[Rfam]
RNA sequence: CAUAUUUCCAAAGGGGAGUAGCGUCAGAGAAAAUAUUCUCUGAAACAAAGUCGUCAUUACGUGGAACUAUGUUCCUCCGGCUUUGUUGGCAUAUUUUAUUACAUAUGUCUAGCAAGACCUUUGCCUAUUAACGGCAGAGGUCUUUUUUGUGUUCUUUUUGAAAUUUCUCUGCC
Number, nucleotide and partner (000 for none) at each position: 001c000002a000003u000004a000005u000006u000007u000008c000009c000010a000011a000012a000013g000014g000015g000016g000017a000018g000019u000020a000021g000022c000023g000024u000025c042026a041027g040028a000029g000030a000031a000032a000033a000034u000035a000036u000037u000038c000039u000040c027041u026042g025043a000044a087045a086046c085047a084048a083049a082050g081051u080052c079053g078054u000055c000056a000057u000058u000059a000060c000061g077062u000063g075064g074065a073066a000067c000068u000069a000070u000071g000072u000073u065074c064075c063076u000077c061078c053079g052080g051081c050082u049083u048084u047085g046086u045087u044088g173089g172090c171091a170092u000093a168094u000095u000096u000097u000098a000099u000100u000101a000102c000103a000104u000105a000106u000107g000108u000109c000110u000111a000112g000113c000114a000115a000116g000117a000118c000119c000120u000121u000122u000123g000124c000125c000126u000127a000128u000129u000130a000131a000132c000133g000134g000135c000136a000137g000138a000139g000140g000141u000142c000143u000144u000145u000146u000147u000148u000149g000150u000151g000152u000153u000154c000155u000156u000157u000158u000159u000160g000161a000162a000163a000164u000165u000166u000167c000168u093169c000170u091171g090172c089173c088
Manganese Mn2+ riboswitch aptamer (yybP-ykoY): a 173-nucleotide sequence. Rfam 15.1 lists 1,126 matches to the family in 1,062 species. This RNA was originally discovered in E. coli during a large scale screen and was named SraF. The family was later found to exist upstream of related families of protein genes in many bacteria, including the the yybP and ykoK genes in B. subtilis. The specific functions of these proteins are unknown, but this structured RNA element may be involved in their genetic regulation as a riboswitch. On this family, see Dambach et al., Mol Cell 2015: "The ubiquitous yybP-ykoY riboswitch is a manganese-responsive regulatory element".